The family of this 296-nucleotide RNA from Trabulsiella odontotermitis is "Soft rot Enterobacteriaceae Rev 39 5'UTR". For this family Rfam cites "Discovery and profiling of small RNAs responsive to stress conditions in the plant pathogen Pectobacterium atrosepticum" (Kwenda et al., BMC Genomics, 2016). Rfam links the family to the GO term cellular response to starvation. NCBI's taxonomy places the organism under Bacteria, Pseudomonadati, Enterobacterales, Enterobacteriaceae, Trabulsiella. The family's RNA type in Rfam is cis-regulatory element. Rfam's curators write: From bacteria cultured under starvation conditions.

[Rfam]
RNA sequence: AUCUUGUGUUCCCGCCGCUGCCUGUGUUACCUCUUUAGGUAUUCCUUCGAACAAGAAGCCAAAAGUAAACAAAAUGACAGCCCUUCUACGAGUGAUUAGCCUGGUCGUGAUUAGCGUGGUGGUGAUUAUUAUCCCACCGUGCGGGGCUGCACUUGGACGAGGAAAGGCAUAGAAAUCAAGCCUUAACGAACUAAGACCCCCGCACCGAAAGGUCCGGGGGUUUUUUUAUGACCUAAAUACUGAAGCGAGGAACAGACAAUGGCCAGUAGCAUAAAAUUCUGUUUCUCGCAAUUUAC
Numbered sequence: 001a002u003c004u005u006g007u008g009u010u011c012c013c014g015c016c017g018c019u020g021c022c023u024g025u026g027u028u029a030c031c032u033c034u035u036u037a038g039g040u041a042u043u044c045c046u047u048c049g050a051a052c053a054a055g056a057a058g059c060c061a062a063a064a065g066u067a068a069a070c071a072a073a074a075u076g077a078c079a080g081c082c083c084u085u086c087u088a089c090g091a092g093u094g095a096u097u098a099g100c101c102u103g104g105u106c107g108u109g110a111u112u113a114g115c116g117u118g119g120u121g122g123u124g125a126u127u128a129u130u131a132u133c134c135c136a137c138c139g140u141g142c143g144g145g146g147c148u149g150c151a152c153u154u155g156g157a158c159g160a161g162g163a164a165a166g167g168c169a170u171a172g173a174a175a176u177c178a179a180g181c182c183u184u185a186a187c188g189a190a191c192u193a194a195g196a197c198c199c200c201c202g203c204a205c206c207g208a209a210a211g212g213u214c215c216g217g218g219g220g221u222u223u224u225u226u227u228a229u230g231a232c233c234u235a236a237a238u239a240c241u242g243a244a245g246c247g248a249g250g251a252a253c254a255g256a257c258a259a260u261g262g263c264c265a266g267u268a269g270c271a272u273a274a275a276a277u278u279c280u281g282u283u284u285c286u287c288g289c290a291a292u293u294u295a296c
Stems, first nucleotide, its partner, number of pairs: 006030003010026001012024001014021002035072002039070002042067001044065001046063001048058001082250003086247001091241001094238001096236003099232001101230001104227001106116003118138005124133003139158002142155004161187001166183002170179001193224010204213003251283006259272003